c-di-GMP-I riboswitch aptamer: an 85-nucleotide sequence from Bacillus sp. FJAT-27986. The match comes from Rfam's covariance-model search (80 bits).
RNA sequence: GACAGUAAAGGGCAAACUUAUUGAAAAAUAAGGACGCAAAGUCACAGGUCUAAGGUUUAAUUACUAUGAUGGCUGGACUGCCUGA
Numbered sequence: 001g002a003c004a005g006u007a008a009a010g011g012g013c014a015a016a017c018u019u020a021u022u023g024a025a026a027a028a029u030a031a032g033g034a035c036g037c038a039a040a041g042u043c044a045c046a047g048g049u050c051u052a053a054g055g056u057u058u059a060a061u062u063a064c065u066a067u068g069a070u071g072g073c074u075g076g077a078c079u080g081c082c083u084g085a
Stems, first nucleotide, its partner, number of pairs: 012037002017032006040079004045075003048070003055064002